[Rfam]
mir-9195 microRNA precursor family: an 86-nucleotide RNA from Cnephaeus nilssonii. The organism belongs to Cnephaeus, within Eukaryota. Gene Ontology terms of the family: RISC complex and miRNA-mediated post-transcriptional gene silencing.
RNA sequence: AGAGGCCCUCUGUGGCCAGGGUGGAACGCUUGCUCAUUGCCGUGGCAACGAAGCAAGCAUUCCACCAGGCCGCUAACGCUGCCUGU
Dot-bracket structure: ...(((.....((((((..(((((((.((((((...((((....))))....)))))).))))))).)))))).......)))...

The match comes from Rfam's covariance-model search (94 bits).